This 94-nucleotide RNA from Streptomyces daliensis belongs to the Rfam family "sodF sRNA". Rfam classes the family as a small RNA. A reference for the family is Kim et al. (2014), "Inverse regulation of Fe- and Ni-containing SOD genes by a Fur family regulator Nur through small RNA processed from 3'UTR of the sodF mRNA", Nucleic Acids Res. The match comes from Rfam's covariance-model search (84 bits). The source organism's lineage runs through Bacteria, Actinomycetes, Kitasatosporales, Streptomycetaceae and Streptomyces.
RNA sequence: CCGGCCUCCUGCCUCGUGAUCGUCUUCUCACCGCUUCACCGGGCAGGCGGAAAGCGGGAGGGCCCCGUACGGACGUGACGUACGGGGCCCUCCU
Numbered sequence: 001c002c003g004g005c006c007u008c009c010u011g012c013c014u015c016g017u018g019a020u021c022g023u024c025u026u027c028u029c030a031c032c033g034c035u036u037c038a039c040c041g042g043g044c045a046g047g048c049g050g051a052a053a054g055c056g057g058g059a060g061g062g063c064c065c066c067g068u069a070c071g072g073a074c075g076u077g078a079c080g081u082a083c084g085g086g087g088c089c090c091u092c093c094u
Base pairs, nucleotide, nucleotide: 001050002049003048008047009046010045011044012043013042014041016039017038018037019036022032056094057093058092059091060090061089062088063087064086065085066084067083068082069081070080071079